RNA sequence: CCUCCUGGACCUGCUGCGGGGAGAUGAAGUGGAUGUGGGUGUCGAUGCCGCCGGCGGUCGCCACCAGGUGCUCGCCGGAGAUCACCUCGGUGCCCGGGCCGAUCACCAGCUUCGGGUGCACACCGCUUUGCAGGCGAGGGUUGCCGGCCUUGCCGACCGCGGUGAUGAAACCGUCCUUGACGCCGAUGUCGCCCUUGACGACACCGAUCACGGCGUCCAGCACCACCACGUUGGUGAUCACGAGGUCCAGCGCUCCCUGGGCGGAGGUGGCCGCCGGGUCCUGGGCCAUGCCGUCCCGGAUG
Numbered sequence: 001c002c003u004c005c006u007g008g009a010c011c012u013g014c015u016g017c018g019g020g021g022a023g024a025u026g027a028a029g030u031g032g033a034u035g036u037g038g039g040u041g042u043c044g045a046u047g048c049c050g051c052c053g054g055c056g057g058u059c060g061c062c063a064c065c066a067g068g069u070g071c072u073c074g075c076c077g078g079a080g081a082u083c084a085c086c087u088c089g090g091u092g093c094c095c096g097g098g099c100c101g102a103u104c105a106c107c108a109g110c111u112u113c114g115g116g117u118g119c120a121c122a123c124c125g126c127u128u129u130g131c132a133g134g135c136g137a138g139g140g141u142u143g144c145c146g147g148c149c150u151u152g153c154c155g156a157c158c159g160c161g162g163u164g165a166u167g168a169a170a171c172c173g174u175c176c177u178u179g180a181c182g183c184c185g186a187u188g189u190c191g192c193c194c195u196u197g198a199c200g201a202c203a204c205c206g207a208u209c210a211c212g213g214c215g216u217c218c219a220g221c222a223c224c225a226c227c228a229c230g231u232u233g234g235u236g237a238u239c240a241c242g243a244g245g246u247c248c249a250g251c252g253c254u255c256c257c258u259g260g261g262c263g264g265a266g267g268u269g270g271c272c273g274c275c276g277g278g279u280c281c282u283g284g285g286c287c288a289u290g291c292c293g294u295c296c297c298g299g300a301u302g
Stems, first nucleotide, its partner, number of pairs: 001302001003300001005298001007296003012164006018076002021073003030053003034050002037048001039046002057069003077154002081150001085146001090144003094140002098135002106130001108129002112125001114123001171284003176278004181273002183270002194230001196228002206221001232267001239259002244256002

Background
A member of the RNA family "5' ureB small RNA" from Streptomyces kaniharaensis, 302 nucleotides long. It scores 74 bits against the family's covariance model. Rfam links the family to the GO term negative regulation of gene expression. Pairs were carried over by alignment from the consensus structure, which was predicted with mfold. For this family Rfam cites "Helicobacter pylori 5'ureB-sRNA, a cis-encoded antisense small RNA, negatively regulates ureAB expression by transcription termination" (Wen et al., J Bacteriol, 2013). The family has 13 seed sequences and 4,812 matches in Rfam 15.1.